[Rfam]
RNA: chrB-a RNA
Organism: Rhizobium sp. BK251
RNA sequence: ACCAUGGGGUUUGCGGAUACCUCACGAGGCGUCAUGCUGGAAUCGCGCGUCCAACUCUUCAGAAGGGACGUAACAUG
Numbered sequence: 001a002c003c004a005u006g007g008g009g010u011u012u013g014c015g016g017a018u019a020c021c022u023c024a025c026g027a028g029g030c031g032u033c034a035u036g037c038u039g040g041a042a043u044c045g046c047g048c049g050u051c052c053a054a055c056u057c058u059u060c061a062g063a064a065g066g067g068a069c070g071u072a073a074c075a076u077g
Stems, first nucleotide, its partner, number of pairs: 005024006047071006